[Rfam]
nhaA-I RNA: a 46-nucleotide RNA sequence. Pairs were carried over by alignment from the consensus structure, which is taken from published work. The sequence is in the family's curated seed alignment. About the family: Acidobacteria, Alphaproteobacteria, Betaproteobacteria and Gammaproteobacteria, Verrucomicrobia, cand. division NC10.

Nucleotides: 046
Stems, first nucleotide, its partner, number of pairs: 005019005027046007
Number, partner (000 for none) and nucleotide at each position: 001000g002000g003000g004000u005019c006018c007017g008016g009015g010000a011000a012000u013000a014000a015009c016008c017007c018006g019005g020000a021000g022000g023000a024000a025000a026000u027046g028045a029044g030043u031042g032041g033040u034000c035000g036000g037000g038000c039000c040033g041032c042031c043030a044029u045028u046027c